Shown here is a 76-nucleotide sequence from Carassius auratus, a member of the family "Small nucleolar RNA SNORD82". The literature on the family includes a 2002 paper in Mol Cell Biol by Galardi et al., "Purified box C/D snoRNPs are able to reproduce site-specific 2'-O-methylation of target RNA in vitro".

RNA sequence: ACCACAUAUGAUGAUGAUUUAAGGGACUUAAUACUGAAACCUGUGAUGUGAGCUUUCAUAUCAGUUCUGAUGCUGG
Numbered sequence: 001a002c003c004a005c006a007u008a009u010g011a012u013g014a015u016g017a018u019u020u021a022a023g024g025g026a027c028u029u030a031a032u033a034c035u036g037a038a039a040c041c042u043g044u045g046a047u048g049u050g051a052g053c054u055u056u057c058a059u060a061u062c063a064g065u066u067c068u069g070a071u072g073c074u075g076g
Stems, first nucleotide, its partner, number of pairs: 002076003005072002
A search with the family's covariance model found it, with a score of 48 bits.